[Rfam]
RNA sequence: GCUGAUGUUACAAGAUGAAUAACUUUUUUCCCCAUCAGAUCGACCAUGUUGAUCACGUGAAGCUUUAAAGCCAGUAAUGUCUGAACCAUCAGC
Numbered sequence: 001g002c003u004g005a006u007g008u009u010a011c012a013a014g015a016u017g018a019a020u021a022a023c024u025u026u027u028u029u030c031c032c033c034a035u036c037a038g039a040u041c042g043a044c045c046a047u048g049u050u051g052a053u054c055a056c057g058u059g060a061a062g063c064u065u066u067a068a069a070g071c072c073a074g075u076a077a078u079g080u081c082u083g084a085a086c087c088a089u090c091a092g093c
Stems, first nucleotide, its partner, number of pairs: 001093007009085001
Small nucleolar SNORD12/SNORD106: a 93-nucleotide sequence from Hymenochirus boettgeri. The family is grouped with related families in Rfam's "SNORD12 clan". The base pairs follow the family's consensus structure, which was predicted with RNAalifold. For this family Rfam cites "Identification of 13 novel human modification guide RNAs" (Vitali et al., Nucleic Acids Res, 2003). It is annotated as a C/D-box small nucleolar RNA. Its family is annotated with nucleolus and RNA processing in the Gene Ontology.